This 140-nucleotide RNA belongs to the Rfam family "Bacterial antisense RNA HPnc0260".
On this family, see Sharma et al., Nature 2010: "The primary transcriptome of the major human pathogen Helicobacter pylori".
It scores 66 bits against the family's covariance model.
[Rfam]
RNA sequence: AGAGUCGCCGUUUUUAUAGGCUAUAAUCUCAUUUUGCAUAAUUAUCCUUUACUAAAUAGAACUCCCAAACAGCGGAAGAACUUUGACCCAAAGGUCUAAAAUGGUGGCCACGAUAGGACUUGAACCUACGACCACUACCA
Dot-bracket structure: ..............(((.....((......)).....)))................(.(.....).)..................................((((((...((.((((.......)))))).))))))...